The family of this 162-nucleotide sequence from Chionoecetes opilio is "U1 spliceosomal RNA". Pairs were carried over by alignment from the consensus structure, which is taken from published work. A reference for the family is Zwieb (1997), "The uRNA database", Nucleic Acids Res. It scores 142 bits against the family's covariance model. The family's RNA type in Rfam is spliceosomal small nuclear RNA. Its family is annotated with mRNA 5'-splice site recognition, U1 snRNP and pre-mRNA 5'-splice site binding in the Gene Ontology. From the family's description: U1 is a small nuclear RNA (snRNA) component of the spliceosome (involved in pre-mRNA splicing). Its Rfam clan is "U1 clan".
RNA sequence: AUACUUACCUGGCACAGGAGAUACCGCGAUCCUGAAGGCGGUUUCCCAAGGCGAGGCCCACCAUUGCACUCCGGCGGUGCUGACCCUUGCGAUUAACCCAAAUGUGGUUAACUCGAGUGUGAAAUUUUUGUUAGCGGGGGAUUGCGUUCGCGCAUCCCCCUU
Numbered sequence: 001a002u003a004c005u006u007a008c009c010u011g012g013c014a015c016a017g018g019a020g021a022u023a024c025c026g027c028g029a030u031c032c033u034g035a036a037g038g039c040g041g042u043u044u045c046c047c048a049a050g051g052c053g054a055g056g057c058c059c060a061c062c063a064u065u066g067c068a069c070u071c072c073g074g075c076g077g078u079g080c081u082g083a084c085c086c087u088u089g090c091g092a093u094u095a096a097c098c099c100a101a102a103u104g105u106g107g108u109u110a111a112c113u114c115g116a117g118u119g120u121g122a123a124a125u126u127u128u129u130g131u132u133a134g135c136g137g138g139g140g141a142u143u144g145c146g147u148u149c150g151c152g153c154a155u156c157c158c159c160c161u162u
Stems, first nucleotide, its partner, number of pairs: 012120004017046003021043001023042005048088004053084001055081003058077002061074002090115003093111003097107002136161005143154004